[Rfam]
Source information: The record is a 46-nucleotide sequence from Steatornis caripensis, which matches "Histone 3' UTR stem-loop" in Rfam. The mRNAs of metazoan histone genes lack a poly-A tail. 3' end processing occurs at a site between a highly conserved stem-loop (modelled by this family) and a purine rich region around 20 nts downstream (the histone downstream element, or HDE). The match comes from Rfam's covariance-model search (40 bits). The family's RNA type in Rfam is cis-regulatory element. The base pairs follow the family's consensus structure, which is taken from published work. Lineage of the source: Eukaryota > Deuterostomia > Euteleostomi > Dipnotetrapodomorpha > Steatornis.

RNA sequence: UAAAAGGCUCUUUUCAGAGCCACCUACAUAGUCAUAAAAGGUUGAG
Numbered sequence: 001u002a003a004a005a006g007g008c009u010c011u012u013u014u015c016a017g018a019g020c021c022a023c024c025u026a027c028a029u030a031g032u033c034a035u036a037a038a039a040g041g042u043u044g045a046g
Stems, first nucleotide, its partner, number of pairs: 006021006
Dot-bracket structure: .....((((((....)))))).........................